[Rfam]
RNA: Small nucleolar RNA SNORA74
RNA sequence: UCCAGUGGUAGUCAGCUGUCCAGAGCAAUACCAUGCCUGUGAUAGUGUUACACUGCUGGAAGAUAAAGAUCAUCAUUUCUUCUGGCUGCUAUUGUCACCGUUCUGGAGACAGCUGGUACCAGCAAGAAGUGGCAUUGGGCUUCCCUGAGAGUGCACUAAAGGUUCUCUUUUCCUCUUUGGUGCUAGUCUGGAAGCCUACACA
Numbered sequence: 001u002c003c004a005g006u007g008g009u010a011g012u013c014a015g016c017u018g019u020c021c022a023g024a025g026c027a028a029u030a031c032c033a034u035g036c037c038u039g040u041g042a043u044a045g046u047g048u049u050a051c052a053c054u055g056c057u058g059g060a061a062g063a064u065a066a067a068g069a070u071c072a073u074c075a076u077u078u079c080u081u082c083u084g085g086c087u088g089c090u091a092u093u094g095u096c097a098c099c100g101u102u103c104u105g106g107a108g109a110c111a112g113c114u115g116g117u118a119c120c121a122g123c124a125a126g127a128a129g130u131g132g133c134a135u136u137g138g139g140c141u142u143c144c145c146u147g148a149g150a151g152u153g154c155a156c157u158a159a160a161g162g163u164u165c166u167c168u169u170u171u172c173c174u175c176u177u178u179g180g181u182g183c184u185a186g187u188c189u190g191g192a193a194g195c196c197u198a199c200a201c202a
Base pairs, nucleotide, nucleotide: 001060002059003058004057005056006055007054008053009052011051012050015046016045017044018043019042020041021039022038023037068135071132074129076127083124084123087118088117089116090115091114093111094110095109096108098106099105137197138196139195140194141193142192143191144190153183154182155181157179158178159177160176161175162174